[Rfam]
RNA sequence: CAGCCACGUUGGGGGUGCCUCGCCGGUAUCGGUGUGGCUGAGAGAGUCCCUUCGAACCUGUACGGGUCAUGCCGUCGUAGGGAAGCGGAGCACGGUCGCU
Numbered sequence: 001c002a003g004c005c006a007c008g009u010u011g012g013g014g015g016u017g018c019c020u021c022g023c024c025g026g027u028a029u030c031g032g033u034g035u036g037g038c039u040g041a042g043a044g045a046g047u048c049c050c051u052u053c054g055a056a057c058c059u060g061u062a063c064g065g066g067u068c069a070u071g072c073c074g075u076c077g078u079a080g081g082g083a084a085g086c087g088g089a090g091c092a093c094g095g096u097c098g099c100u
Base pairs, nucleotide, nucleotide: 007087008086009085010084011051012050013049014048016045017038018037019036021034022033023032024031057081058080059079060078062075063074064073065072
Notes:
This 100-nucleotide sequence from Candidatus Accumulibacter sp. BA-94 belongs to the Rfam family "TPP riboswitch aptamer (THI element)". The match comes from Rfam's covariance-model search (58 bits). The source organism's lineage runs through Bacteria, Pseudomonadati, Pseudomonadota, Betaproteobacteria and Candidatus Accumulibacter.